[Rfam]
RNA sequence: UCUAGAACGUCAGAUAUGGGUAAAAUUCUAAGCAGUGUUUGGGCUGGAUUACAGGACAGAUUCUGACUUCUCUUUUGUGGCCAAACUUUGAAUUUGAAAAUGGCAGAUUUAGGUCUUAUACUACUCAUGAACAUUGUAGGUCUAUUUCUUAGCUUUCCAUC
Numbered sequence: 001u002c003u004a005g006a007a008c009g010u011c012a013g014a015u016a017u018g019g020g021u022a023a024a025a026u027u028c029u030a031a032g033c034a035g036u037g038u039u040u041g042g043g044c045u046g047g048a049u050u051a052c053a054g055g056a057c058a059g060a061u062u063c064u065g066a067c068u069u070c071u072c073u074u075u076u077g078u079g080g081c082c083a084a085a086c087u088u089u090g091a092a093u094u095u096g097a098a099a100a101u102g103g104c105a106g107a108u109u110u111a112g113g114u115c116u117u118a119u120a121c122u123a124c125u126c127a128u129g130a131a132c133a134u135u136g137u138a139g140g141u142c143u144a145u146u147u148c149u150u151a152g153c154u155u156u157c158c159a160u161c
Stems, first nucleotide, its partner, number of pairs: 003159001005157003008152001012149003016145005021139001023137001025135001035128003046124001048122001050120002053117005059110002062107004067103002073097002077093002
Rfam assigns this 161-nucleotide sequence from Populus deltoides to the family "MIR2912 microRNA precursor family". Taxonomically the source falls in Populus (Eukaryota, Viridiplantae, Euphyllophyta, rosids). The base pairs follow the family's consensus structure, which was predicted with RNAalifold.